RNA sequence: AUGCAGUGCGGAGGGCUACCAUCGGUGAACCGUGGCAGAACUUUGCAUUUUUCAAAGUGUGCACUGCAACAUGUAUGAAACCACCGGGCGAAAGUCCCCGGGCACUGAGGCAGAAAGUGCCAGCUGUAGCAAGCAGGUCCUCCCCAUGCCACUUGUGGCUGGGGGGCAGCUCGCCAUAGCAACAGUUAUGUAGCCAGUGGGUUUAUCCCACCAACCUAACGGGGCUUACUCCUGUGCUGAU
Numbered sequence: 001a002u003g004c005a006g007u008g009c010g011g012a013g014g015g016c017u018a019c020c021a022u023c024g025g026u027g028a029a030c031c032g033u034g035g036c037a038g039a040a041c042u043u044u045g046c047a048u049u050u051u052u053c054a055a056a057g058u059g060u061g062c063a064c065u066g067c068a069a070c071a072u073g074u075a076u077g078a079a080a081c082c083a084c085c086g087g088g089c090g091a092a093a094g095u096c097c098c099c100g101g102g103c104a105c106u107g108a109g110g111c112a113g114a115a116a117g118u119g120c121c122a123g124c125u126g127u128a129g130c131a132a133g134c135a136g137g138u139c140c141u142c143c144c145c146a147u148g149c150c151a152c153u154u155g156u157g158g159c160u161g162g163g164g165g166g167c168a169g170c171u172c173g174c175c176a177u178a179g180c181a182a183c184a185g186u187u188a189u190g191u192a193g194c195c196a197g198u199g200g201g202u203u204u205a206u207c208c209c210a211c212c213a214a215c216c217u218a219a220c221g222g223g224g225c226u227u228a229c230u231c232c233u234g235u236g237c238u239g240a241u
Stems, first nucleotide, its partner, number of pairs: 004239008014195006022087006032070002035067004092227003096224004109121004123134003139166006148159004197211005
Record summary: The family of this 241-nucleotide RNA sequence from Chlamydomonas eustigma is "RNase MRP". About the family: RNase MRP is an enzymatically active ribonucleoprotein with two distinct roles in eukaryotes. Rfam classes the family as a ribozyme. The match comes from Rfam's covariance-model search (102 bits). The family has 66 seed sequences and 3,510 matches in Rfam 15.1.